[Rfam]
RNA: Small nucleolar RNA SNORA40
RNA sequence: AGCACUUGAUCAGGUUUUGUCUUUCGCUGUAGGCAAAAACCUGGAACCUAGUGCUUAGAGAAAAACCUUCUUUUGCAACCCACAGCUGAUUAAUGUAUUAGUUGUGAUACUGAUAUGAAGGGACAAU
Numbered sequence: 001a002g003c004a005c006u007u008g009a010u011c012a013g014g015u016u017u018u019g020u021c022u023u024u025c026g027c028u029g030u031a032g033g034c035a036a037a038a039a040c041c042u043g044g045a046a047c048c049u050a051g052u053g054c055u056u057a058g059a060g061a062a063a064a065a066c067c068u069u070c071u072u073u074u075g076c077a078a079c080c081c082a083c084a085g086c087u088g089a090u091u092a093a094u095g096u097a098u099u100a101g102u103u104g105u106g107a108u109a110c111u112g113a114u115a116u117g118a119a120g121g122g123a124c125a126a127u
Stems, first nucleotide, its partner, number of pairs: 001055006008048001010045001013040001015038006067122003071118002074115002081106010